[Rfam]
RNA sequence: GGCAUACGAUGACGUAGGAGAUUGCUAUUCAAUAGAAAUAGGUAACUUUUACUGAGAAUGUCCGAUUCAAGAAACCGGGCGACAA
Numbered sequence: 001g002g003c004a005u006a007c008g009a010u011g012a013c014g015u016a017g018g019a020g021a022u023u024g025c026u027a028u029u030c031a032a033u034a035g036a037a038a039u040a041g042g043u044a045a046c047u048u049u050u051a052c053u054g055a056g057a058a059u060g061u062c063c064g065a066u067u068c069a070a071g072a073a074a075c076c077g078g079g080c081g082a083c084a085a
Base pairs, nucleotide, nucleotide: 014052015051016050018049019048020047025041026040027039028038029037059084060083061082062081066079067078068077
RNA: S10-Clostridia ribosomal protein leader
Organism: Ruminiclostridium sufflavum